[Rfam]
RNA sequence: CUUGUUAGAAGUUCGGUUAAGUUCAUCCCCUCCUGGGAUAACACCGAACUACCCCACAUCGUAUGGG
Numbered sequence: 001c002u003u004g005u006u007a008g009a010a011g012u013u014c015g016g017u018u019a020a021g022u023u024c025a026u027c028c029c030c031u032c033c034u035g036g037g038a039u040a041a042c043a044c045c046g047a048a049c050u051a052c053c054c055c056a057c058a059u060c061g062u063a064u065g066g067g
Base pairs, nucleotide, nucleotide: 011049012048013047014046015045016044017043025039026038027037028036029035053067054066055065056064
This 67-nucleotide RNA from Pontibacillus halophilus belongs to the Rfam family "Bacillaceae-1 RNA".